SAM (S-adenosyl methionine) riboswitch aptamer: a 119-nucleotide RNA from Mycobacterium sp. JLS. About the family: SAM-IV is a mRNA element that regulates gene expression via direct sensing of S-adenosylmethionine (SAM or AdoMet).

RNA sequence: GGUCAUGAGUGCCAGCGUCAAGCCCCGGCUUGCUGGCCGGCAACCCUCCAACCGCGGUGGGGUGCCCCGGGUGAUGACCAGGUUGAGUAGCCGUGACGGCUACGCGGCAAGCGCGGGUC
Numbered sequence: 001g002g003u004c005a006u007g008a009g010u011g012c013c014a015g016c017g018u019c020a021a022g023c024c025c026c027g028g029c030u031u032g033c034u035g036g037c038c039g040g041c042a043a044c045c046c047u048c049c050a051a052c053c054g055c056g057g058u059g060g061g062g063u064g065c066c067c068c069g070g071g072u073g074a075u076g077a078c079c080a081g082g083u084u085g086a087g088u089a090g091c092c093g094u095g096a097c098g099g100c101u102a103c104g105c106g107g108c109a110a111g112c113g114c115g116g117g118u119c
Base pairs, nucleotide, nucleotide: 001079002078003077004076009038011037012036013035014034015033016032021030022029039066040065041064044062045061046060048057049056082108083107084106085105087103088102089101090100091099
The sequence is in the family's curated seed alignment. The base pairs follow the family's consensus structure, which is taken from published work. Lineage of the source: Bacteria > Actinomycetota > Mycobacteriales > Mycobacteriaceae > Mycobacterium.